RNA: Small nucleolar RNA U19
Organism: Hevea brasiliensis
RNA sequence: AAUUGGCUUAGUUAGGAGGCAGAGAUCAAACUGUUUGAUCAAUCUAGGGUUGGUCAUUCAUAAUCCAAGGCCUUUUUGAGGGACAAUCUUGCUAUUCCUCUAUUGAUUGUCCUCCAAGCAGCCUUAGACAUCU
Numbered sequence: 001a002a003u004u005g006g007c008u009u010a011g012u013u014a015g016g017a018g019g020c021a022g023a024g025a026u027c028a029a030a031c032u033g034u035u036u037g038a039u040c041a042a043u044c045u046a047g048g049g050u051u052g053g054u055c056a057u058u059c060a061u062a063a064u065c066c067a068a069g070g071c072c073u074u075u076u077u078g079a080g081g082g083a084c085a086a087u088c089u090u091g092c093u094a095u096u097c098c099u100c101u102a103u104u105g106a107u108u109g110u111c112c113u114c115c116a117a118g119c120a121g122c123c124u125u126a127g128a129c130a131u132c133u
Base pairs, nucleotide, nucleotide: 004021005020007018008017009016037055038054039053040052041051042050043049065127067125068124069123070122071121075118076117077116078115080114081112082111083110084109085108086107087106